[Rfam]
Streptomyces RNA 3920: a 127-nucleotide RNA sequence from Streptomyces dangxiongensis. Rfam describes the family as follows. Identified by deep sequencing of transcriptome at the end of exponential growth phase. Sequencing size consistent with northern blot size. Taxonomically the source falls in Streptomyces (Bacteria, Bacillati, Actinomycetota, Kitasatosporales).

RNA sequence: GAUAGGCUCCUGUCGCUAGCGUGAUUGGACACUGACGCAGAGUCAACUAGCCUUGGUCGCGCGGCUCUUCGCGAGCGAAUCCGCAGACGGUCCGAGCCACGAGGGGGGGAGGCUCGGACCGUCAUCA
Numbered sequence: 001g002a003u004a005g006g007c008u009c010c011u012g013u014c015g016c017u018a019g020c021g022u023g024a025u026u027g028g029a030c031a032c033u034g035a036c037g038c039a040g041a042g043u044c045a046a047c048u049a050g051c052c053u054u055g056g057u058c059g060c061g062c063g064g065c066u067c068u069u070c071g072c073g074a075g076c077g078a079a080u081c082c083g084c085a086g087a088c089g090g091u092c093c094g095a096g097c098c099a100c101g102a103g104g105g106g107g108g109g110a111g112g113c114u115c116g117g118a119c120c121g122u123c124a125u126c127a
Base pairs, nucleotide, nucleotide: 001014002013003012004011005010015051016050017049018048021032022031023030033045034044035043036042058075060073061072062071063070064069076083077082086123087122088121089120090119091118092117093116094115095114096113097112098111100108